[Rfam]
RNA sequence: GCCGGUCGAGGACCUUAACCGCACGCAGGGGCGGGGGACCCAAUUUCGGGCGCUGUUGCACACAGCGUCCUUGGGGUGAAGCCGCACGGACCGUGGUCCGUGAGGCCGGGUGUUUCUCCCACCCGAACCCGACAGCUGACCUCGUAGGCGACAGGAGAGGGAACAC
Numbered sequence: 001g002c003c004g005g006u007c008g009a010g011g012a013c014c015u016u017a018a019c020c021g022c023a024c025g026c027a028g029g030g031g032c033g034g035g036g037g038a039c040c041c042a043a044u045u046u047c048g049g050g051c052g053c054u055g056u057u058g059c060a061c062a063c064a065g066c067g068u069c070c071u072u073g074g075g076g077u078g079a080a081g082c083c084g085c086a087c088g089g090a091c092c093g094u095g096g097u098c099c100g101u102g103a104g105g106c107c108g109g110g111u112g113u114u115u116c117u118c119c120c121a122c123c124c125g126a127a128c129c130c131g132a133c134a135g136c137u138g139a140c141c142u143c144g145u146a147g148g149c150g151a152c153a154g155g156a157g158a159g160g161g162a163a164c165a166c
Stems, first nucleotide, its partner, number of pairs: 001149003007030001031145006041073002074130003082105002085102007108124004